[Rfam]
RNA sequence: GAUCGGACAGCGCCAGCAAUGGAGUCGUUUGAGGGGGAGCGUGCCGGGGACCCACAGUGGUAUCCGGGGUGAAUCGGCGUGUGGGCCCGUAGCGAAUGCCGCGGGUGGACGCGUUGUAGGGCCGAAUACUUCCCGGCCCGAACCCGACAGCUAACUCGGCAGGCGGAAUAGGAAGAAUGG
Numbered sequence: 001g002a003u004c005g006g007a008c009a010g011c012g013c014c015a016g017c018a019a020u021g022g023a024g025u026c027g028u029u030u031g032a033g034g035g036g037g038a039g040c041g042u043g044c045c046g047g048g049g050a051c052c053c054a055c056a057g058u059g060g061u062a063u064c065c066g067g068g069g070u071g072a073a074u075c076g077g078c079g080u081g082u083g084g085g086c087c088c089g090u091a092g093c094g095a096a097u098g099c100c101g102c103g104g105g106u107g108g109a110c111g112c113g114u115u116g117u118a119g120g121g122c123c124g125a126a127u128a129c130u131u132c133c134c135g136g137c138c139c140g141a142a143c144c145c146g147a148c149a150g151c152u153a154a155c156u157c158g159g160c161a162g163g164c165g166g167a168a169u170a171g172g173a174a175g176a177a178u179g180g
Base pairs, nucleotide, nucleotide: 004041005040043160044159045158046157047156048155053066067145068144069143075116076115077114078113079112080111081110082109119139120138121137122136
Dot-bracket structure: ...((..................................)).((((((....(............)(((.....((((((((..........................))))))))..((((.............))))...))).........))))))....................
c-di-AMP riboswitch aptamer (ydaO/yuaA leader): a 180-nucleotide RNA sequence from Antricoccus suffuscus. NCBI's taxonomy places the organism under Bacteria, Bacillati, Actinomycetota, Antricoccaceae, Antricoccus. This family represents a conserved RNA structure found upstream of the ydaO and yuaA genes in Bacillus subtilis and related genes in other bacteria. The ydaO/yuaA element is thought to act as a genetic 'off' switch for the ydaO and yuaA genes in its native state. It is believed that the element may be triggered during osmotic shock leading to activation of ydaO, a predicted amino acid transporter gene, and members of the yuaA-yubG operon which code for KtrA and KtrB K+ transporters.